Notes:
A member of the RNA family "Actinobacteria sRNA Ms_IGR-5" from Nocardioides sp. JS614, 194 nucleotides long.
[Rfam]
RNA sequence: ACACGGGAAAGGAGGUGGUCCGAAGAAUGAGUUCUUCCAGGACGCGUGAGGUGGCUGCCCGCUAGCAGCCCACCAGCAACACCCGGGGUGGAAGUGCCCCGGGACGGCUGCUGGCGAAUCCCAGGCAGUCACCCGACCCGCAGGCGAUCCGGUCAUCACGUCCACCGGAGCGGUCUCCUCGGAGGCCGGCGCCU
Numbered sequence: 001a002c003a004c005g006g007g008a009a010a011g012g013a014g015g016u017g018g019u020c021c022g023a024a025g026a027a028u029g030a031g032u033u034c035u036u037c038c039a040g041g042a043c044g045c046g047u048g049a050g051g052u053g054g055c056u057g058c059c060c061g062c063u064a065g066c067a068g069c070c071c072a073c074c075a076g077c078a079a080c081a082c083c084c085g086g087g088g089u090g091g092a093a094g095u096g097c098c099c100c101g102g103g104a105c106g107g108c109u110g111c112u113g114g115c116g117a118a119u120c121c122c123a124g125g126c127a128g129u130c131a132c133c134c135g136a137c138c139c140g141c142a143g144g145c146g147a148u149c150c151g152g153u154c155a156u157c158a159c160g161u162c163c164a165c166c167g168g169a170g171c172g173g174u175c176u177c178c179u180c181g182g183a184g185g186c187c188g189g190c191g192c193c194u
Base pairs, nucleotide, nucleotide: 014059015058016057017056018055019054060116061115062114063113064112065111066110068108069107070106074102076100134188135187137185138184141181143179144178146176148169149168150167151166152165153164

The source organism's lineage runs through Bacteria, Bacillati, Actinomycetes, Propionibacteriales and Nocardioides.